[Rfam]
RNA sequence: GACACAUCCAGAGGGGUGGAGGGACUGGCCCGACGAAACCCCGGCAACCCCCCGCGAACGCCACGCGGGAAAGGUGCCAAUUCCUGUGAGAUGUGGC
Numbered sequence: 001g002a003c004a005c006a007u008c009c010a011g012a013g014g015g016g017u018g019g020a021g022g023g024a025c026u027g028g029c030c031c032g033a034c035g036a037a038a039c040c041c042c043g044g045c046a047a048c049c050c051c052c053c054g055c056g057a058a059c060g061c062c063a064c065g066c067g068g069g070a071a072a073g074g075u076g077c078c079a080a081u082u083c084c085u086g087u088g089a090g091a092u093g094u095g096g097c
Stems, first nucleotide, its partner, number of pairs: 001097001003095006013042005021031003025086001027084002043078004048074002051069006082089001
This 97-nucleotide RNA sequence from Capillimicrobium parvum belongs to the Rfam family "SAM riboswitch aptamer (S box leader)". Taxonomically the source falls in Capillimicrobium (Bacteria, Actinomycetota, Solirubrobacterales, Capillimicrobiaceae). The SAM riboswitch is found upstream of a number of genes which code for proteins involved in methionine or cysteine biosynthesis in Gram-positive bacteria. The match comes from Rfam's covariance-model search (76 bits). Gene Ontology term of the family: regulation of gene expression.